[Rfam]
RNA sequence: GGAUGUCAGGGUGAUCUGGCUGUGACAUCUGUCACCCCAUUGAUCGUCAGGGUUGAUUGGGCUGAUCUGACCAACUAGGCAGGUGUCCCGUUCCUCCCUCACUGCUUCAUGUGCGUCCCUCCCGAAGCUGUGUGCUCGGCUGAAGAGGACGACCUUCCCCAAUAGAGACAUACCAUUCACCAGUCAAGGGUAUACAGUAGCUGCGCUCCCCUGCUAGAACCUCCAAACAAGCUCAAGGUCCAUUUGUAGGAGAACGUAGGGUAGUCAAGCUUCCAAGACUGCAGACAAAUUCAAAUGAGGUGCUGCACGUAGCAGUCUGCCAUUCUAU
Numbered sequence: 001g002g003a004u005g006u007c008a009g010g011g012u013g014a015u016c017u018g019g020c021u022g023u024g025a026c027a028u029c030u031g032u033c034a035c036c037c038c039a040u041u042g043a044u045c046g047u048c049a050g051g052g053u054u055g056a057u058u059g060g061g062c063u064g065a066u067c068u069g070a071c072c073a074a075c076u077a078g079g080c081a082g083g084u085g086u087c088c089c090g091u092u093c094c095u096c097c098c099u100c101a102c103u104g105c106u107u108c109a110u111g112u113g114c115g116u117c118c119c120u121c122c123c124g125a126a127g128c129u130g131u132g133u134g135c136u137c138g139g140c141u142g143a144a145g146a147g148g149a150c151g152a153c154c155u156u157c158c159c160c161a162a163u164a165g166a167g168a169c170a171u172a173c174c175a176u177u178c179a180c181c182a183g184u185c186a187a188g189g190g191u192a193u194a195c196a197g198u199a200g201c202u203g204c205g206c207u208c209c210c211c212u213g214c215u216a217g218a219a220c221c222u223c224c225a226a227a228c229a230a231g232c233u234c235a236a237g238g239u240c241c242a243u244u245u246g247u248a249g250g251a252g253a254a255c256g257u258a259g260g261g262u263a264g265u266c267a268a269g270c271u272u273c274c275a276a277g278a279c280u281g282c283a284g285a286c287a288a289a290u291u292c293a294a295a296u297g298a299g300g301u302g303c304u305g306c307a308c309g310u311a312g313c314a315g316u317c318u319g320c321c322a323u324u325c326u327a328u
Stems, first nucleotide, its partner, number of pairs: 001108003005102002008099004013093002019089001024087010038069002042067004046062003119167003122139004127135002141161002147158003200270003206264002209261006221252004227247005293328001295326001297323001299321003302316005